[Rfam]
A member of the RNA family "ffh sRNA" from Wenxinia marina, 53 nucleotides long. The source organism's lineage runs through Bacteria, Rhodobacterales, Roseobacteraceae, Wenxinia and Wenxinia marina.
RNA sequence: ACCACGGGGGAUCGCCCCCCGUCAGCGCAGGUGCGCCCACGGGGGCGUUUGCC
Numbered sequence: 001a002c003c004a005c006g007g008g009g010g011a012u013c014g015c016c017c018c019c020c021g022u023c024a025g026c027g028c029a030g031g032u033g034c035g036c037c038c039a040c041g042g043g044g045g046c047g048u049u050u051g052c053c
Stems, first nucleotide, its partner, number of pairs: 016045007025036004